[Rfam]
RNA sequence: AAUACUUCAUUUAGUUCCAUUAACAAAAUCUAAAGUUGAUUUAUAGACAGGUACAAAAAAAUCAAUCCUCUUUUGCAAUCCAGAACUCAUUGUUCAGUAUAAGUUUUGCUACAAAUAAGAAGGGGUAUU
Numbered sequence: 001a002a003u004a005c006u007u008c009a010u011u012u013a014g015u016u017c018c019a020u021u022a023a024c025a026a027a028a029u030c031u032a033a034a035g036u037u038g039a040u041u042u043a044u045a046g047a048c049a050g051g052u053a054c055a056a057a058a059a060a061a062u063c064a065a066u067c068c069u070c071u072u073u074u075g076c077a078a079u080c081c082a083g084a085a086c087u088c089a090u091u092g093u094u095c096a097g098u099a100u101a102a103g104u105u106u107u108g109c110u111a112c113a114a115a116u117a118a119g120a121a122g123g124g125g126u127a128u129u
Base pairs, nucleotide, nucleotide: 003053004052005051006050007049011045014040015039016038020034021033026031065126066125067124068123069122071120072119073118074117075116081108082107083106084105085104086103087102089100090099
RNA: Small nucleolar RNA SNORA40
Organism: Pan paniscus